[Rfam]
The family of this 387-nucleotide RNA from Pseudoroseicyclus tamaricis is "Bacterial RNase P class A". Its family is annotated with ribonuclease P activity, tRNA processing and dimeric ribonuclease P complex in the Gene Ontology. Taxonomically the source falls in Pseudoroseicyclus (Bacteria, Pseudomonadota, Rhodobacterales, Paracoccaceae). The family's RNA type in Rfam is ribozyme.
RNA sequence: GCGGAGGGCCGGACGGCCGCGGGGCAACUCGAGGAAAGUCCGGACUCCAUCAGGCAGCGGUGCCGGGUAACGCCCGGCCGGGGCAACCCGAGGGACAGCGCCACAGAGAACAGACCGCCGGGACGCAGUCCCGGUAAGGGUGAAACGGUGGGGCAAGAGCCCACCGGGGGGCCGGCAACGGCGCCCGCAUGGCAAGCCCCACCGGGAGCAAUGCCGAAUAGGGGCCGCGCGCCGCCCCUCCCGCAAGGGAGGACGGCAGGGAUGCUUGAUCCCGAGCGGUCCGGGUUGGCAGCAUGAGUGGCGGAGCAAUCCGUCGCCACAGAUGAAUGGCCGUCGCCGGGGCGCAAGCUCCGGGCACAGAAUCCGGCUUACAGGCCCUCCGCGCAU
Numbered sequence: 001g002c003g004g005a006g007g008g009c010c011g012g013a014c015g016g017c018c019g020c021g022g023g024g025c026a027a028c029u030c031g032a033g034g035a036a037a038g039u040c041c042g043g044a045c046u047c048c049a050u051c052a053g054g055c056a057g058c059g060g061u062g063c064c065g066g067g068u069a070a071c072g073c074c075c076g077g078c079c080g081g082g083g084c085a086a087c088c089c090g091a092g093g094g095a096c097a098g099c100g101c102c103a104c105a106g107a108g109a110a111c112a113g114a115c116c117g118c119c120g121g122g123a124c125g126c127a128g129u130c131c132c133g134g135u136a137a138g139g140g141u142g143a144a145a146c147g148g149u150g151g152g153g154c155a156a157g158a159g160c161c162c163a164c165c166g167g168g169g170g171g172c173c174g175g176c177a178a179c180g181g182c183g184c185c186c187g188c189a190u191g192g193c194a195a196g197c198c199c200c201a202c203c204g205g206g207a208g209c210a211a212u213g214c215c216g217a218a219u220a221g222g223g224g225c226c227g228c229g230c231g232c233c234g235c236c237c238c239u240c241c242c243g244c245a246a247g248g249g250a251g252g253a254c255g256g257c258a259g260g261g262a263u264g265c266u267u268g269a270u271c272c273c274g275a276g277c278g279g280u281c282c283g284g285g286u287u288g289g290c291a292g293c294a295u296g297a298g299u300g301g302c303g304g305a306g307c308a309a310u311c312c313g314u315c316g317c318c319a320c321a322g323a324u325g326a327a328u329g330g331c332c333g334u335c336g337c338c339g340g341g342g343c344g345c346a347a348g349c350u351c352c353g354g355g356c357a358c359a360g361a362a363u364c365c366g367g368c369u370u371a372c373a374g375g376c377c378c379u380c381c382g383c384g385c386a387u
Base pairs, nucleotide, nucleotide: 001383002382003381004380005379006378007377008376009375010374011372012335013334014333015332016331017330018329020031021030022029023028036370037369038368040367041366042365043364044363045208046207047206048205053267054266058204059203060202061201062200063077064076065075066074067073078092079090080089081088082087093199094198098197099196100193101192102191115139116138117135118134119133120132121131122130123129124128147165148164149163150162151161152160166188167186168185169184171182172181173180174179212291213290214289215288222282223281224280225279226278227277259273260272261271262270263269298317299316300315301314302313303312304311305310